Shown here is a 172-nucleotide RNA sequence from Heyndrickxia coagulans, a member of the family "Group II catalytic intron D1-D4-3".
RNA sequence: UCCAUCGUGAGAUGGAAUCUGAAGGAAGCUGGAGGCAAAAUUCUGACCCGAGGAACACGAACAUCAUUAGGCGUACUCUCACAGGGUAAGGCUGCUGAACAAGUCAAAGCCCAAAAGCUAUCCGGAUGUGGAAACGUAAAUGGUGCGGGUACAUGGAAUGAAAGCAAAUCAC
Numbered sequence: 001u002c003c004a005u006c007g008u009g010a011g012a013u014g015g016a017a018u019c020u021g022a023a024g025g026a027a028g029c030u031g032g033a034g035g036c037a038a039a040a041u042u043c044u045g046a047c048c049c050g051a052g053g054a055a056c057a058c059g060a061a062c063a064u065c066a067u068u069a070g071g072c073g074u075a076c077u078c079u080c081a082c083a084g085g086g087u088a089a090g091g092c093u094g095c096u097g098a099a100c101a102a103g104u105c106a107a108a109g110c111c112c113a114a115a116a117g118c119u120a121u122c123c124g125g126a127u128g129u130g131g132a133a134a135c136g137u138a139a140a141u142g143g144u145g146c147g148g149g150u151a152c153a154u155g156g157a158a159u160g161a162a163a164g165c166a167a168a169u170c171a172c
Stems, first nucleotide, its partner, number of pairs: 001016006028172001031169001035165002040159006046150005062145005071137003077132002080130004084112004090105004
The pairing is the family consensus, mapped onto this sequence. The organism belongs to Heyndrickxia coagulans, within Bacteria.